[Rfam]
RNA sequence: GGAGUGGGCCGAGCGUCCGCUGCGGCGGGCGUGUUGCGGCUUCGGCUGCGAUGCGAUCCGCCGGGGAGGAAAGUCCGGGCUCCACAGAACACGGUGGUGGAUAACGUCCACCGUCCGCGAGGACCGGGAAAGUGCCACAGAAAACAAACCGCCGAUGGCUCAUCGGCAACACGUCGAGUUGAGAACGGAAACACGUGCCACGGCUCUGUGACCCGUGCGGGCGCGGAAAACGCCCCGGCACGCGGCACGGCCGAUACGCCCGUGGCACUCCAGUCAACUCGCCGCGUUGCCGGUGAGAUCAGGUAAGGGUGAAACGGUGCGGUAAGAGCGCACCGCGGUUCUGGCGACAGAACCGGCACGGCAAACCCCACCGGGAGCAAGACCAAGCAGGGUGGAGGAGCUGUUCGCUCCGUUUGACACCCGGGUGUGUCGCAUCGAGGCGCUGAGGCAACUCACGUCCCAGAGAAAUGGACGCUCCAGACAGAACCCGGCUUAUAGGCCCACUCCGGUC
Numbered sequence: 001g002g003a004g005u006g007g008g009c010c011g012a013g014c015g016u017c018c019g020c021u022g023c024g025g026c027g028g029g030c031g032u033g034u035u036g037c038g039g040c041u042u043c044g045g046c047u048g049c050g051a052u053g054c055g056a057u058c059c060g061c062c063g064g065g066g067a068g069g070a071a072a073g074u075c076c077g078g079g080c081u082c083c084a085c086a087g088a089a090c091a092c093g094g095u096g097g098u099g100g101a102u103a104a105c106g107u108c109c110a111c112c113g114u115c116c117g118c119g120a121g122g123a124c125c126g127g128g129a130a131a132g133u134g135c136c137a138c139a140g141a142a143a144a145c146a147a148a149c150c151g152c153c154g155a156u157g158g159c160u161c162a163u164c165g166g167c168a169a170c171a172c173g174u175c176g177a178g179u180u181g182a183g184a185a186c187g188g189a190a191a192c193a194c195g196u197g198c199c200a201c202g203g204c205u206c207u208g209u210g211a212c213c214c215g216u217g218c219g220g221g222c223g224c225g226g227a228a229a230a231c232g233c234c235c236c237g238g239c240a241c242g243c244g245g246c247a248c249g250g251c252c253g254a255u256a257c258g259c260c261c262g263u264g265g266c267a268c269u270c271c272a273g274u275c276a277a278c279u280c281g282c283c284g285c286g287u288u289g290c291c292g293g294u295g296a297g298a299u300c301a302g303g304u305a306a307g308g309g310u311g312a313a314a315c316g317g318u319g320c321g322g323u324a325a326g327a328g329c330g331c332a333c334c335g336c337g338g339u340u341c342u343g344g345c346g347a348c349a350g351a352a353c354c355g356g357c358a359c360g361g362c363a364a365a366c367c368c369c370a371c372c373g374g375g376a377g378c379a380a381g382a383c384c385a386a387g388c389a390g391g392g393u394g395g396a397g398g399a400g401c402u403g404u405u406c407g408c409u410c411c412g413u414u415u416g417a418c419a420c421c422c423g424g425g426u427g428u429g430u431c432g433c434a435u436c437g438a439g440g441c442g443c444u445g446a447g448g449c450a451a452c453u454c455a456c457g458u459c460c461c462a463g464a465g466a467a468a469u470g471g472a473c474g475c476u477c478c479a480g481a482c483a484g485a486a487c488c489c490g491g492c493u494u495a496u497a498g499g500c501c502c503a504c505u506c507c508g509g510u511c
Stems, first nucleotide, its partner, number of pairs: 001507010011496001012476007020066002023063006071494003075491005080377004087406004092373005097111005112126001113124004127368002132366002134362003149308002151304003156301003160297001316334006335357001336355008381431003390422005397411005439459004444455004
Dot-bracket structure: ((((((((((((((((((.((.((((((.............................)))))).))....[[[.[[[[[((((...[[[[.((((((((((.....)))))(((((....)))).)((...(((((............(((((..(((.(........................................................................................................................................).))))))..)).......((((((.......))))))(((((((((....)))))))).)..)))..)))))))))))))...(((......(((((..(((((.]]]])))))......)))))......))).......((((.((((....))))))))..........)))))))..........]]]]]]]].).))))))))))....
Notes
The family of this 511-nucleotide RNA from Caulifigura coniformis is "Bacterial RNase P class A". The family's RNA type in Rfam is ribozyme. A search with the family's covariance model found it, with a score of 262 bits.